The family of this 86-nucleotide RNA from Planoprotostelium fungivorum is "Selenocysteine transfer RNA". The organism belongs to Planoprotostelium, within Eukaryota. Its family is annotated with triplet codon-amino acid adaptor activity in the Gene Ontology. For this family Rfam cites "Eukaryotic selenocysteine tRNA has the 9/4 secondary structure" (Mizutani and Goto, FEBS Lett, 2000). Rfam 15.1 lists 4,211 matches to the family in 3,344 species. The family's consensus secondary structure is taken from published work.

Nucleotides: 086
Stems, first nucleotide, its partner, number of pairs: 001086007009078001012027006028046006048061005063077004
Number, partner (000 for none) and nucleotide at each position: 001086g002085c003084u004083g005082g006081g007080a008000u009078g010000a011000a012027u013026c014025c015024g016023a017022g018000u019000g020000g021000u022017c023016u024015c025014g026013g027012a028046a029045a030044c031043a032042g033041a034000c035000u036000u037000c038000a039000a040000a041033u042032c043031u044030g045029u046028u047000g048061c049060a050059c051058c052057a053000g054000a055000g056000a057052u058051g059050g060049u061048g062000a063077g064076c065075g066074a067000u068000u069000c070000g071000a072000u073000u074066u075065c076064g077063c078009c079000u080007u081006u082005c083004c084003a085002g086001c